Source information: A member of the RNA family "L4-Archaeoglobi ribosomal protein leades", 103 nucleotides long. A reference for the family is Eckert and Weinberg (2020), "Discovery of 20 novel ribosomal leader candidates in bacteria and archaea", BMC Microbiol. The family's RNA type in Rfam is cis-regulatory leader.
RNA sequence: CUGAUGGCCGCGUUCGGGUCAAUUGCGGACUGCAACACCCGGUCUCACUCCCGGUGUCGCCCGCGAUGGCGACGCCGUCGGAGGGGGAGCGUGUCACCGUCAG
Numbered sequence: 001c002u003g004a005u006g007g008c009c010g011c012g013u014u015c016g017g018g019u020c021a022a023u024u025g026c027g028g029a030c031u032g033c034a035a036c037a038c039c040c041g042g043u044c045u046c047a048c049u050c051c052c053g054g055u056g057u058c059g060c061c062c063g064c065g066a067u068g069g070c071g072a073c074g075c076c077g078u079c080g081g082a083g084g085g086g087g088a089g090c091g092u093g094u095c096a097c098c099g100u101c102a103g
Stems, first nucleotide, its partner, number of pairs: 001103005009093005015041004023035005043088004048083004